[Rfam]
Annotation:
A member of the RNA family "Bacillus-plasmid RNA" from Eufriesea mexicana, 64 nucleotides long. Taxonomically the source falls in Eufriesea (Eukaryota, Pancrustacea, Altocrustacea, Apocrita). By type it is a small RNA.
RNA sequence: UAUGUCUAUUGGGUAAACGAGAGGGAUAACGGAGGAAGGAUAAGGAAUAGAUAUAUUCGCUGCA
Numbered sequence: 001u002a003u004g005u006c007u008a009u010u011g012g013g014u015a016a017a018c019g020a021g022a023g024g025g026a027u028a029a030c031g032g033a034g035g036a037a038g039g040a041u042a043a044g045g046a047a048u049a050g051a052u053a054u055a056u057u058c059g060c061u062g063c064a
Stems, first nucleotide, its partner, number of pairs: 001055009